[Rfam]
RNA: Mitochondrial DNA control region secondary structure A
Organism: Hymenochirus boettgeri
RNA sequence: CUAUAAUACUGUGAUAACUGUACAUACUAUAUACGUGUUAUACGUACUACUAUAACUACUGUGUAUACUGUACACUACUAUACAUACUGUGUAUACUGUACA
Numbered sequence: 001c002u003a004u005a006a007u008a009c010u011g012u013g014a015u016a017a018c019u020g021u022a023c024a025u026a027c028u029a030u031a032u033a034c035g036u037g038u039u040a041u042a043c044g045u046a047c048u049a050c051u052a053u054a055a056c057u058a059c060u061g062u063g064u065a066u067a068c069u070g071u072a073c074a075c076u077a078c079u080a081u082a083c084a085u086a087c088u089g090u091g092u093a094u095a096c097u098g099u100a101c102a
Stems, first nucleotide, its partner, number of pairs: 006092004011087001013085001014081003020034003024030002035056002039052002061075005